[Rfam]
RNA sequence: ACAAAACUAGCUACUUGUCAUUUUUUAAUUGGUUUUAAUGUGUUAAAAUUUUAUAAGAACCAAUUUGAAAAUGACAAGUAGCUAGUUUUGA
Numbered sequence: 001a002c003a004a005a006a007c008u009a010g011c012u013a014c015u016u017g018u019c020a021u022u023u024u025u026u027a028a029u030u031g032g033u034u035u036u037a038a039u040g041u042g043u044u045a046a047a048a049u050u051u052u053a054u055a056a057g058a059a060c061c062a063a064u065u066u067g068a069a070a071a072u073g074a075c076a077a078g079u080a081g082c083u084a085g086u087u088u089u090g091a
Stems, first nucleotide, its partner, number of pairs: 002090024027065009036055002
Shown here is a 91-nucleotide RNA sequence from Prunus persica, a member of the family "MIR6288 microRNA precursor family". Rfam links the family to the GO terms RISC complex and miRNA-mediated post-transcriptional gene silencing. Pairs were carried over by alignment from the consensus structure, which was predicted with RNAalifold.